Shown here is a 71-nucleotide RNA from Penaeus vannamei, a member of the family "mir-71 microRNA precursor family".
Pairs were carried over by alignment from the consensus structure, which was predicted with RNAalifold.

[Rfam]
RNA sequence: GCCCCGUGAAAGACAAGGUAGUGAGAUGUUGCCAUGUCUUACAUCUCACUACCCAUGUCUUUCACAGCGCC
Numbered sequence: 001g002c003c004c005c006g007u008g009a010a011a012g013a014c015a016a017g018g019u020a021g022u023g024a025g026a027u028g029u030u031g032c033c034a035u036g037u038c039u040u041a042c043a044u045c046u047c048a049c050u051a052c053c054c055a056u057g058u059c060u061u062u063c064a065c066a067g068c069g070c071c
Stems, first nucleotide, its partner, number of pairs: 008063008017053002020050009